[Rfam]
Rfam assigns this 165-nucleotide RNA sequence from Betta splendens to the family "Small Cajal body specific RNA 1".
Its family is annotated with nucleolus, Cajal body and RNA processing in the Gene Ontology.
Rfam describes the family as follows. scaRNAs are a specific class of small nuclear RNAs which localise to the Cajal bodies and guide the modification of RNA polymerase II transcribed spliceosomal RNAs U1, U2, U4, U5 and U12. ACA35 belong to the H/ACA box class of guide RNAs as it has the predicted hairpin-hinge-hairpin-tail structure, conserved H/ACA-box motifs and is found associated with GAR1. It is predicted to guide pseudouridylation of the U2 spliceosomal snRNA at residue U89.
RNA sequence: AUGCACCAGAUACAGGCCUGACAGUCUAUCUCGUCCCGGAUGUGUUGCACGCUGGGAUUUCCAAUGGCUGCAUGGCUUCAAACGGUGCAAAAGUAACAUUAGCCAUGAGAUUUUAGCUCUUCAGUAGGAAGUAAUACUGUUGGGUUAUGGCUCAGAGGCACAGAU
Numbered sequence: 001a002u003g004c005a006c007c008a009g010a011u012a013c014a015g016g017c018c019u020g021a022c023a024g025u026c027u028a029u030c031u032c033g034u035c036c037c038g039g040a041u042g043u044g045u046u047g048c049a050c051g052c053u054g055g056g057a058u059u060u061c062c063a064a065u066g067g068c069u070g071c072a073u074g075g076c077u078u079c080a081a082a083c084g085g086u087g088c089a090a091a092a093g094u095a096a097c098a099u100u101a102g103c104c105a106u107g108a109g110a111u112u113u114u115a116g117c118u119c120u121u122c123a124g125u126a127g128g129a130a131g132u133a134a135u136a137c138u139g140u141u142g143g144g145u146u147a148u149g150g151c152u153c154a155g156a157g158g159c160a161c162a163g164a165u
Stems, first nucleotide, its partner, number of pairs: 003088005015077004022070005028058005033052001102159003122139005140155006